[Rfam]
RNA sequence: CGGUUGCUAGGUGACAUCGAGAAAUCGUUGGCAGUUAGCAAGUUGUACUUCAUCUAACGUAGAAGCUCGCCGUGCCUACACCGAGUAUCUACGCUUUUUU
Dot-bracket structure: .(.(((((((.((.((.((......)).)).)).))))))).)............(.((((((.(((((..(((....)))))))).)))))).).....
RNA: 23S methyl RNA motif